[Rfam]
RNA sequence: AGCCACGCAUUGUGCACAGAGCGAACUAUUCUUUCGCCUUUUACUAAAGAAUACCGUGUGUACGUUGCAUUUAGUGGCAUACGCCAAUUUUUGAAAGAGCUCUCUCUUUAGAGUGGCU
Numbered sequence: 001a002g003c004c005a006c007g008c009a010u011u012g013u014g015c016a017c018a019g020a021g022c023g024a025a026c027u028a029u030u031c032u033u034u035c036g037c038c039u040u041u042u043a044c045u046a047a048a049g050a051a052u053a054c055c056g057u058g059u060g061u062a063c064g065u066u067g068c069a070u071u072u073a074g075u076g077g078c079a080u081a082c083g084c085c086a087a088u089u090u091u092u093g094a095a096a097g098a099g100c101u102c103u104c105u106c107u108u109u110a111g112a113g114u115g116g117c118u
Stems, first nucleotide, its partner, number of pairs: 003077004008067002011064008027053008095118001099117003103113001
This 118-nucleotide RNA sequence from Arachis duranensis belongs to the Rfam family "U5 spliceosomal RNA".
The match comes from Rfam's covariance-model search (91 bits).
Lineage of the source: Eukaryota > Spermatophyta > Mesangiospermae > Fabales > Arachis.
For this family Rfam cites "The uRNA database" (Zwieb, Nucleic Acids Res, 1997).
Pairs were carried over by alignment from the consensus structure, which is taken from published work.
The family's RNA type in Rfam is spliceosomal small nuclear RNA.
Rfam links the family to the GO terms U5 snRNP and spliceosomal tri-snRNP complex assembly.